[Rfam]
RNA: Small nucleolar RNA snoR99
Organism: Hibiscus syriacus
RNA sequence: GUGCUUUAGGUAUGAACUGGCCCCUCAUAUCUAAUGUCCAUCUGAUCACUUUGUCAGUUGCCUUUUCCGGUAGCAUGCUGAUCAUUAUAGGAUGGAAAAUGU
Numbered sequence: 001g002u003g004c005u006u007u008a009g010g011u012a013u014g015a016a017c018u019g020g021c022c023c024c025u026c027a028u029a030u031c032u033a034a035u036g037u038c039c040a041u042c043u044g045a046u047c048a049c050u051u052u053g054u055c056a057g058u059u060g061c062c063u064u065u066u067c068c069g070g071u072a073g074c075a076u077g078c079u080g081a082u083c084a085u086u087a088u089a090g091g092a093u094g095g096a097a098a099a100u101g102u
Stems, first nucleotide, its partner, number of pairs: 037096006053082006